[Rfam]
RNA sequence: AGUAGGCUUGUUCUGUGAAUGGGGUAGGAACUCUCCUACCCAACUCCUAUUCUGGUAUGUCCUUGCCAUACAGGUCGUGCACAUGUUGUCCCGCUUAUCUGAGCUUGGGUAAACGGGUCCAAUCCCAACUCCUUGGGACGAUGGGGCUGCAUGGCCAAGGCAGAAAGGG
Numbered sequence: 001a002g003u004a005g006g007c008u009u010g011u012u013c014u015g016u017g018a019a020u021g022g023g024g025u026a027g028g029a030a031c032u033c034u035c036c037u038a039c040c041c042a043a044c045u046c047c048u049a050u051u052c053u054g055g056u057a058u059g060u061c062c063u064u065g066c067c068a069u070a071c072a073g074g075u076c077g078u079g080c081a082c083a084u085g086u087u088g089u090c091c092c093g094c095u096u097a098u099c100u101g102a103g104c105u106u107g108g109g110u111a112a113a114c115g116g117g118u119c120c121a122a123u124c125c126c127a128a129c130u131c132c133u134u135g136g137g138a139c140g141a142u143g144g145g146g147c148u149g150c151a152u153g154g155c156c157a158a159g160g161c162a163g164a165a166a167g168g169g
Stems, first nucleotide, its partner, number of pairs: 010076001012074005022041008045169004050165002053163001055161001056159001057069003062077001082153005089146004097142003105128005130137002
Dot-bracket structure: .........(.(((((.....((((((((....))))))))...[[[[.[[.[.[[(((..[....)))))))).)]....(((((..((((....(((.....(((((..............))))).((....))..)))))))..))))).....].].]]]]]]]